[Rfam]
RNA sequence: AUAUGGUGCCGGGCCCCUCUGGCGAGAGUUUUUACGGCGCUCUCGCGAUGUCGGUACCGCCUG
Number, nucleotide and partner (000 for none) at each position: 001a000002u000003a000004u000005g000006g057007u056008g055009c054010c053011g052012g051013g000014c000015c000016c000017c000018u000019c000020u000021g000022g046023c045024g044025a043026g042027a041028g040029u039030u000031u000032u000033u000034a000035c000036g000037g000038c000039g029040c028041u027042c026043u025044c024045g023046c022047g000048a000049u000050g000051u012052c011053g010054g009055u008056a007057c006058c000059g000060c000061c000062u000063g000

Background:
Rfam assigns this 63-nucleotide sequence from Martinezella rhizogenes to the family "terC RNA". The sequence is in the family's curated seed alignment.